ACEA small nucleolar RNA U3: a 216-nucleotide sequence from Rhizopus delemar. Taxonomically the source falls in Rhizopus delemar (Eukaryota, Mucoromycota, Mucorales, Mucorineae). Its family is annotated with RNA processing and nucleolus in the Gene Ontology. Small nucleolar RNAs (snoRNAs) are involved in the processing and modification of rRNA in the nucleolus. There are two main classes of snoRNAs: the box C/D class, and the box H/ACA class. U3 snoRNA is a member of the box C/D class. Indeed, the box C/D element is a subset of the six short sequence elements found in all U3 snoRNAs, namely boxes A, A', B, C, C', and D. The U3 snoRNA secondary structure is characterised by a small 5' domain (with boxes A and A'), and a larger 3' domain (with boxes B, C, C', and D), the two domains being linked by a single-stranded hinge. Boxes B and C form the B/C motif, which appears to be exclusive to U3 snoRNAs, and boxes C' and D form the C'/D motif. The latter is functionally similar to the C/D motifs found in other snoRNAs. The 5' domain and the hinge region act as a pre-rRNA-binding domain. The 3' domain has conserved protein-binding sites. Both the box B/C and box C'/D motifs are sufficient for nuclear retention of U3 snoRNA. The box C'/D motif is also necessary for nucleolar localisation, stability and hyper-methylation of U3 snoRNA. Both box B/C and C'/D motifs are involved in specific protein interactions and are necessary for the rRNA processing functions of U3 snoRNA.
RNA sequence: GUGACCGUACUCUACAGGAUCUGUAUGCAGUACAUAACAUUUCUACGUUUUCAAAACGAGAUACAAUUCCAAAGUUAGUCGAUGAUUGUUAGUAGCUCUUCUUUUGAGUGAAGUGUGGCAUCAACUAUCUCUCAGAGUAGUUCUUGUCAGUUGAUGAUCUCGCCUGUCUUUUAUUCCAAGGACAUGGCAGGGAAGACGCUACAAGUCUGAUAACUU
Numbered sequence: 001g002u003g004a005c006c007g008u009a010c011u012c013u014a015c016a017g018g019a020u021c022u023g024u025a026u027g028c029a030g031u032a033c034a035u036a037a038c039a040u041u042u043c044u045a046c047g048u049u050u051u052c053a054a055a056a057c058g059a060g061a062u063a064c065a066a067u068u069c070c071a072a073a074g075u076u077a078g079u080c081g082a083u084g085a086u087u088g089u090u091a092g093u094a095g096c097u098c099u100u101c102u103u104u105u106g107a108g109u110g111a112a113g114u115g116u117g118g119c120a121u122c123a124a125c126u127a128u129c130u131c132u133c134a135g136a137g138u139a140g141u142u143c144u145u146g147u148c149a150g151u152u153g154a155u156g157a158u159c160u161c162g163c164c165u166g167u168c169u170u171u172u173a174u175u176c177c178a179a180g181g182a183c184a185u186g187g188c189a190g191g192g193a194a195g196a197c198g199c200u201a202c203a204a205g206u207c208u209g210a211u212a213a214c215u216u
Stems, first nucleotide, its partner, number of pairs: 001040003008032004016026001018024001044065001047062005073215005092202005097196006106161003116149005165184006

A reference for the family is Zwieb (1997), "The uRNA database", Nucleic Acids Res. The family's RNA type in Rfam is C/D-box small nucleolar RNA.